[Rfam]
RNA sequence: CUAAUUAAAUAUUUUUUUGCAGAUAUAGCGUACGGAAAAUGGCCGUACAGUUUCUACCACCAACCAAAAGAGGUGACUAUCCGCAAGUGCUUUUAGCUA
Number, nucleotide and partner (000 for none) at each position: 001c000002u000003a000004a000005u000006u000007a000008a000009a000010u000011a000012u000013u000014u000015u000016u000017u000018u085019g084020c083021a000022g081023a080024u079025a078026u000027a000028g000029c000030g048031u047032a046033c045034g044035g043036a000037a000038a000039a000040u000041g000042g000043c035044c034045g033046u032047a031048c030049a000050g000051u000052u000053u000054c000055u000056a000057c000058c075059a074060c073061c072062a000063a000064c000065c000066a000067a000068a000069a000070g000071a000072g061073g060074u059075g058076a000077c000078u025079a024080u023081c022082c000083g020084c019085a018086a000087g000088u000089g000090c000091u000092u000093u000094u000095a000096g000097c000098u000099a000
Notes: Purine riboswitch aptamer: a 99-nucleotide sequence from Weissella oryzae. It scores 54 bits against the family's covariance model. Its family is annotated with purine nucleobase biosynthetic process in the Gene Ontology.